[Rfam]
RNA sequence: CAAUAGGUUAGUUUCACAUGAGGGGUUAGGCACACUUUCACCUUUUAGGAUAUUUCCUAAAAAGGGGGUGUUGCUUAUGGAUAUGGAAAGUGUAUUAAAGCUGAUGCUUUCUUUCGGCAUGCUAAUAGCUUUUAUCAUGUCCGACAAAAACCAUAAAAAAUAACCCCUCAUGUGAUUUUGGCAAGUCAGUUGAGGGAUUAUUUAUCUAGUCCUGUGCCUCCCCCUCUUGAUGGGGUUAGCUUAUUGUAACCGUUCCAUGUAGAAGCAUGGGACG
Numbered sequence: 001c002a003a004u005a006g007g008u009u010a011g012u013u014u015c016a017c018a019u020g021a022g023g024g025g026u027u028a029g030g031c032a033c034a035c036u037u038u039c040a041c042c043u044u045u046u047a048g049g050a051u052a053u054u055u056c057c058u059a060a061a062a063a064g065g066g067g068g069u070g071u072u073g074c075u076u077a078u079g080g081a082u083a084u085g086g087a088a089a090g091u092g093u094a095u096u097a098a099a100g101c102u103g104a105u106g107c108u109u110u111c112u113u114u115c116g117g118c119a120u121g122c123u124a125a126u127a128g129c130u131u132u133u134a135u136c137a138u139g140u141c142c143g144a145c146a147a148a149a150a151c152c153a154u155a156a157a158a159a160a161u162a163a164c165c166c167c168u169c170a171u172g173u174g175a176u177u178u179u180g181g182c183a184a185g186u187c188a189g190u191u192g193a194g195g196g197a198u199u200a201u202u203u204a205u206c207u208a209g210u211c212c213u214g215u216g217c218c219u220c221c222c223c224c225u226c227u228u229g230a231u232g233g234g235g236u237u238a239g240c241u242u243a244u245u246g247u248a249a250c251c252g253u254u255c256c257a258u259g260u261a262g263a264a265g266c267a268u269g270g271g272a273c274g
Stems, first nucleotide, its partner, number of pairs: 001246005007240003011236001015174008025164004032071003036068004079142007092107003117133001119131001184202003220235004251274010
Rfam assigns this 274-nucleotide sequence from Virgibacillus necropolis to the family "BsrG". bsrE, bsrG and bsrH pair through intermolecular interactions with antisense sRNAs. They form type I toxin/antitoxin system that includes an mRNA encoding for a short, toxic peptide (bsrE, bsrG and bsrH) and an antitoxin that is comprised of an antisense RNA. bsrG encodes a 39-amino-acid toxin, and the 180 nucleotide antisense sRNA called SR4 acts as the antitoxin (they overlap by 123 nucleotides). SR4 interaction with the 3'UTR of bsrG RNA promotes bsrG degradation and inhibits its translation. BsrG interferes with cell envelope biosynthesis, causes membrane invaginations and delocalisation of the cell wall synthesis and initiates autolysis. bsrE RNA encodes 30 amino-acid toxin peptide. The family's consensus secondary structure was predicted with WAR. By type it is a small RNA.